Shown here is a 47-nucleotide RNA sequence from Streptomyces piniterrae, a member of the family "L31-Actinobacteria ribosomal protein leader". The family is grouped with related families in Rfam's "Ribosomal Protein L31 Leader clan".

RNA sequence: UCGGCCCCGGUUCACGUGACGCAACCCGCGACACGACCCGGAGCGCU
Numbered sequence: 001u002c003g004g005c006c007c008c009g010g011u012u013c014a015c016g017u018g019a020c021g022c023a024a025c026c027c028g029c030g031a032c033a034c035g036a037c038c039c040g041g042a043g044c045g046c047u
Stems, first nucleotide, its partner, number of pairs: 003047003007041004015035004020030003

NCBI's taxonomy places the organism under Bacteria, Bacillati, Actinomycetes, Streptomycetaceae, Streptomyces. The base pairs follow the family's consensus structure, which is taken from published work.